[Rfam]
Nucleotides: 211
Base pairs, nucleotide, nucleotide: 010210011209012208014206017203018202020200023197025195026194027193028192030189031188034185035184040179041178043177044176045175046174047173048172049171050170052168054165055164056163057162058160059159062092063091064090065089066088068086069085070084071083073081074080095157096156097155098154112147113145116142117141120138121137122136123135124134125133126132127131
Number, partner (000 for none) and nucleotide at each position: 001000g002000u003000g004000a005000g006000a007000u008000g009000a010210u011209g012208a013000a014206c015000g016000u017203g018202u019000u020200u021000a022000u023197c024000c025195a026194u027193u028192c029000u030189c031188u032000g033000a034185g035184u036000g037000c038000u039000u040179g041178c042000u043177a044176g045175g046174g047173u048172c049171c050170u051000g052168c053000u054165u055164u056163c057162u058160c059159u060000g061000u062092g063091g064090u065089g066088c067000g068086c069085a070084u071083g072000u073081c074080u075000g076000u077000u078000u079000u080074a081073g082000c083071c084070a085069u086068g087000a088066g089065u090064g091063u092062c093000u094000g095157c096156u097155g098154u099000g100000u101000c102000c103000c104000g105000g106000g107000a108000u109000c110000c111000a112147c113145u114000c115000u116142g117141c118000c119000a120138c121137c122136u123135c124134a125133g126132u127131g128000u129000u130000c131127u132126a133125c134124u135123g136122g137121g138120g139000c140000a141117g142116c143000u144000c145113a146000u147112g148000c149000u150000g151000g152000a153000g154098a155097c156096a157095g158000g159059g160058g161000c162057a163056g164055g165054a166000c167000u168052g169000g170050a171049g172048g173047g174046c175045c176044c177043u178041g179040c180000g181000a182000u183000a184035a185034c186000a187000a188031a189030g190000a191000c192028g193027a194026g195025u196000u197023g198000a199000c200020a201000c202018a203017c204000c205000u206014g207000a208012u209011c210010a211000c